[Rfam]
RNA sequence: GGCCUCGUAGCUCAGUGGAUAGAGCGCCUCCGUCCUAAGGAGGGCGUCGGGGGUUCGAUUCCCUCCGGGGCCG
Numbered sequence: 001g002g003c004c005u006c007g008u009a010g011c012u013c014a015g016u017g018g019a020u021a022g023a024g025c026g027c028c029u030c031c032g033u034c035c036u037a038a039g040g041a042g043g044g045c046g047u048c049g050g051g052g053g054u055u056c057g058a059u060u061c062c063c064u065c066c067g068g069g070g071c072c073g
Stems, first nucleotide, its partner, number of pairs: 001072007010025004027043005049065005
The record is a 73-nucleotide sequence from Armatimonadetes bacterium Uphvl-Ar1, which matches "tRNA" in Rfam. NCBI's taxonomy places the organism under Bacteria, Bacillati, Armatimonadota. Rfam classes the family as a transfer RNA. The match comes from Rfam's covariance-model search (59 bits). The family's consensus secondary structure is taken from published work.